[Rfam]
RNA sequence: GUUUGAGAAGGUGAUGGAGUUCACCACUUUCAUGAUUAAUAUGAACCCGUACUAGUCGGGGAAACCGCCCACCAGGCUGAUAACUCCUAUCAUAUU
Numbered sequence: 001g002u003u004u005g006a007g008a009a010g011g012u013g014a015u016g017g018a019g020u021u022c023a024c025c026a027c028u029u030u031c032a033u034g035a036u037u038a039a040u041a042u043g044a045a046c047c048c049g050u051a052c053u054a055g056u057c058g059g060g061g062a063a064a065c066c067g068c069c070c071a072c073c074a075g076g077c078u079g080a081u082a083a084c085u086c087c088u089a090u091c092a093u094a095u096u
Stems, first nucleotide, its partner, number of pairs: 010025004016087006067077003
Shown here is a 96-nucleotide RNA sequence from Melioribacter sp., a member of the family "Fluoride riboswitch aptamer (crcB RNA motif)".
A search with the family's covariance model found it, with a score of 47 bits.
Rfam links the family to the GO terms response to fluoride and positive regulation of gene expression.